[Rfam]
RNA sequence: UUAGUUCCUGUAAACAUCCUACACUCAGCUAUUAUAAGUGGUGGGGCUGGGGGUUGGGUGUUUACUUCAACUGA
Numbered sequence: 001u002u003a004g005u006u007c008c009u010g011u012a013a014a015c016a017u018c019c020u021a022c023a024c025u026c027a028g029c030u031a032u033u034a035u036a037a038g039u040g041g042u043g044g045g046g047c048u049g050g051g052g053g054u055u056g057g058g059u060g061u062u063u064a065c066u067u068c069a070a071c072u073g074a
Base pairs, nucleotide, nucleotide: 002073003072004071005070006069010065011064012063013062014061015060016059017058018057019056021054022053024051025050026049027048028047029046030045
The record is a 74-nucleotide sequence, which matches "mir-30 microRNA precursor family" in Rfam. This family consists of the mammalian microRNA (miRNA) precursor mir-30a. Rfam 15.1 lists 3,879 matches to the family in 647 species.